mir-10 microRNA precursor family: a 76-nucleotide RNA from Carassius auratus.
[Rfam]
RNA sequence: CUAUAUGUACCCUGUAGAACCGAAUUUGUGUCCAAAACAUGAAAAUCGCAAGUACGUCUCUACAGGAAUACAUGGG
Numbered sequence: 001c002u003a004u005a006u007g008u009a010c011c012c013u014g015u016a017g018a019a020c021c022g023a024a025u026u027u028g029u030g031u032c033c034a035a036a037a038c039a040u041g042a043a044a045a046u047c048g049c050a051a052g053u054a055c056g057u058c059u060c061u062a063c064a065g066g067a068a069u070a071c072a073u074g075g076g
Base pairs, nucleotide, nucleotide: 002074003073004072006070007069010066011065016061017060018059021056022055024053025052026051027050028049029048030047
Pairs were carried over by alignment from the consensus structure, which was predicted with PFOLD. NCBI's taxonomy places the organism under Eukaryota, Opisthokonta, Metazoa, Eumetazoa, Carassius. A reference for the family is Lee and Ambros (2001), "An extensive class of small RNAs in Caenorhabditis elegans", Science.